[Rfam]
RNA sequence: GUCCCCGUCCUAGGCGGCCCCUUGGGGGGCGUCGCGGCUGCCCUCGCCCAUGGGGUGAGGGUACUCGAGGACGGUGUCAAUUAUGCAACAGGGAACCUUCCUGGUUGCUCUUU
Numbered sequence: 001g002u003c004c005c006c007g008u009c010c011u012a013g014g015c016g017g018c019c020c021c022u023u024g025g026g027g028g029g030c031g032u033c034g035c036g037g038c039u040g041c042c043c044u045c046g047c048c049c050a051u052g053g054g055g056u057g058a059g060g061g062u063a064c065u066c067g068a069g070g071a072c073g074g075u076g077u078c079a080a081u082u083a084u085g086c087a088a089c090a091g092g093g094a095a096c097c098u099u100c101c102u103g104g105u106u107g108c109u110c111u112u113u
Stems, first nucleotide, its partner, number of pairs: 001077002004074002007072003013033004018028001019026002035067003039063011085108005091102003
A member of the RNA family "J750 non-coding RNA (containing SLSL761 and SL783)", 113 nucleotides long. It is one of the family's seed sequences. It is annotated as a cis-regulatory element.